[Rfam]
RNA sequence: AAAGUCGACCAGACAGUCGCCGCGUGUUAAGUCACGGGGAGGAAAGUCCGGGCUCCAUAGGGCAGGAUGCCGGUUAACGACCGGGCGCCGUGAGGCGACGGAAAGUGGAACAGAGAGCAGAACCGCCGAUGGCUGGGGGCUUCACCGCAAGGUGCAGCACCAACGCGACAGGCCAGGAUACGCGCCCUUCAGGGUGUACGUCCUGCACCAGCGCUGGCUUGCCAGCACGCUGUCGCACGGCACAGGUAAGGGUGAAAAGGUGCGGUAAGAGCGCACCGCGUUGGUGGCAACAUUCAACGGCAGGCUAAACCCCAUCCGGAGCAAGACCAAAUAGGGGUACAUUGGCGUGGCCCGCGCUGUACCCGGGUAGGUUGCUUGAGCCUGUCGGUAACGGCAGGUCUAGAGGAAUGACUGUUCAACGACAGAACCCGGCUUAUCGGUCGACUUUCCAC
Numbered sequence: 001a002a003a004g005u006c007g008a009c010c011a012g013a014c015a016g017u018c019g020c021c022g023c024g025u026g027u028u029a030a031g032u033c034a035c036g037g038g039g040a041g042g043a044a045a046g047u048c049c050g051g052g053c054u055c056c057a058u059a060g061g062g063c064a065g066g067a068u069g070c071c072g073g074u075u076a077a078c079g080a081c082c083g084g085g086c087g088c089c090g091u092g093a094g095g096c097g098a099c100g101g102a103a104a105g106u107g108g109a110a111c112a113g114a115g116a117g118c119a120g121a122a123c124c125g126c127c128g129a130u131g132g133c134u135g136g137g138g139g140c141u142u143c144a145c146c147g148c149a150a151g152g153u154g155c156a157g158c159a160c161c162a163a164c165g166c167g168a169c170a171g172g173c174c175a176g177g178a179u180a181c182g183c184g185c186c187c188u189u190c191a192g193g194g195u196g197u198a199c200g201u202c203c204u205g206c207a208c209c210a211g212c213g214c215u216g217g218c219u220u221g222c223c224a225g226c227a228c229g230c231u232g233u234c235g236c237a238c239g240g241c242a243c244a245g246g247u248a249a250g251g252g253u254g255a256a257a258a259g260g261u262g263c264g265g266u267a268a269g270a271g272c273g274c275a276c277c278g279c280g281u282u283g284g285u286g287g288c289a290a291c292a293u294u295c296a297a298c299g300g301c302a303g304g305c306u307a308a309a310c311c312c313c314a315u316c317c318g319g320a321g322c323a324a325g326a327c328c329a330a331a332u333a334g335g336g337g338u339a340c341a342u343u344g345g346c347g348u349g350g351c352c353c354g355c356g357c358u359g360u361a362c363c364c365g366g367g368u369a370g371g372u373u374g375c376u377u378g379a380g381c382c383u384g385u386c387g388g389u390a391a392c393g394g395c396a397g398g399u400c401u402a403g404a405g406g407a408a409u410g411a412c413u414g415u416u417c418a419a420c421g422a423c424a425g426a427a428c429c430c431g432g433c434u435u436a437u438c439g440g441u442c443g444a445c446u447u448u449c450c451a452c
Stems, first nucleotide, its partner, number of pairs: 001448010011437001012416007020039002023036004044435003048432005053321004060353004065317005070084005085099001086097004100312002105310002107306002123251002125247003130242002133239001259277006278301001279299005284293003325373004335364006344358005380399008
RNA: Bacterial RNase P class A
Organism: Craterilacuibacter sinensis